[Rfam]
RNA sequence: CACAAUAGAAUAGGGAUUCUCAAGGGUGGUUAGCACGUCCUCAGAAGAAAGGAGGGGGAGUGCUCGUGACGGUCUUUGAAGCGUUAAUGUUUGCAUGUACUUUUGCAGGCUUAAUCAUAGGAAUGCUGUCAUUUGACCAUAAAAAAUAACCCACCCUUGAGCCUGCCAGCAUAAAGGGUGAGUUAAGUUUGUUGUGAAUAGUUUAUAGCGAUCACCCUAGCAGGGAACCGUCUAUUGUAUGGACCGCUUGGUGUUCCAGCACCGGCG
Numbered sequence: 001c002a003c004a005a006u007a008g009a010a011u012a013g014g015g016a017u018u019c020u021c022a023a024g025g026g027u028g029g030u031u032a033g034c035a036c037g038u039c040c041u042c043a044g045a046a047g048a049a050a051g052g053a054g055g056g057g058g059a060g061u062g063c064u065c066g067u068g069a070c071g072g073u074c075u076u077u078g079a080a081g082c083g084u085u086a087a088u089g090u091u092u093g094c095a096u097g098u099a100c101u102u103u104u105g106c107a108g109g110c111u112u113a114a115u116c117a118u119a120g121g122a123a124u125g126c127u128g129u130c131a132u133u134u135g136a137c138c139a140u141a142a143a144a145a146a147u148a149a150c151c152c153a154c155c156c157u158u159g160a161g162c163c164u165g166c167c168a169g170c171a172u173a174a175a176g177g178g179u180g181a182g183u184u185a186a187g188u189u190u191g192u193u194g195u196g197a198a199u200a201g202u203u204u205a206u207a208g209c210g211a212u213c214a215c216c217c218u219a220g221c222a223g224g225g226a227a228c229c230g231u232c233u234a235u236u237g238u239a240u241g242g243a244c245c246g247c248u249u250g251g252u253g254u255u256c257c258a259g260c261a262c263c264g265g266c267g
Stems, first nucleotide, its partner, number of pairs: 002238004007233003015213004019161008028151004036057001039055004068130006081096001083094001106121001171192003215225002245267003249264006
Background:
The family of this 267-nucleotide RNA from Bacillus sp. PK3_68 is "BsrG". Gene Ontology terms of the family: toxin activity and autolysis. Lineage of the source: Bacteria > Bacillota > Bacilli > Bacillaceae > Bacillus. A search with the family's covariance model found it, with a score of 95 bits. Rfam describes the family as follows. bsrE, bsrG and bsrH pair through intermolecular interactions with antisense sRNAs. They form type I toxin/antitoxin system that includes an mRNA encoding for a short, toxic peptide (bsrE, bsrG and bsrH) and an antitoxin that is comprised of an antisense RNA. bsrG encodes a 39-amino-acid toxin, and the 180 nucleotide antisense sRNA called SR4 acts as the antitoxin (they overlap by 123 nucleotides). SR4 interaction with the 3'UTR of bsrG RNA promotes bsrG degradation and inhibits its translation.